[Rfam]
RNA sequence: GAGUUUAUUCUGCAGGCGAGGUUAACCGGAAGGGAAGCCGAAGCGAAAGCAACAAGUUCGUAGCAUUCGUGCCUGGAACGACGUAUUCAACGUGCGUGGAGUCUGUAGGAUAAGACCCGAAACCCGGUGAUCUAUGCGUGGGCAGGUUGAAGCGUGCCGAAAGGUGCGUGGAGGACCGCAGGCGGUUUUGAUAUGCAAAUCAUUCGCGUGACCUGCGUAUAGGAGUGAAAGAUUCAUCGAACCGGGAAUCAGCUGGUU
Numbered sequence: 001g002a003g004u005u006u007a008u009u010c011u012g013c014a015g016g017c018g019a020g021g022u023u024a025a026c027c028g029g030a031a032g033g034g035a036a037g038c039c040g041a042a043g044c045g046a047a048a049g050c051a052a053c054a055a056g057u058u059c060g061u062a063g064c065a066u067u068c069g070u071g072c073c074u075g076g077a078a079c080g081a082c083g084u085a086u087u088c089a090a091c092g093u094g095c096g097u098g099g100a101g102u103c104u105g106u107a108g109g110a111u112a113a114g115a116c117c118c119g120a121a122a123c124c125c126g127g128u129g130a131u132c133u134a135u136g137c138g139u140g141g142g143c144a145g146g147u148u149g150a151a152g153c154g155u156g157c158c159g160a161a162a163g164g165u166g167c168g169u170g171g172a173g174g175a176c177c178g179c180a181g182g183c184g185g186u187u188u189u190g191a192u193a194u195g196c197a198a199a200u201c202a203u204u205c206g207c208g209u210g211a212c213c214u215g216c217g218u219a220u221a222g223g224a225g226u227g228a229a230a231g232a233u234u235c236a237u238c239g240a241a242c243c244g245g246g247a248a249u250c251a252g253c254u255g256g257u258u
Stems, first nucleotide, its partner, number of pairs: 005113013020039004026033002043050002056079004063072003082096004116256002119253001123246006132222011143210001145177004152169007182207004188202001190201002224234003
RNA: Archaeal large subunit ribosomal RNA, nucleotides 654 to 911
Organism: Methanocalculus chunghsingensis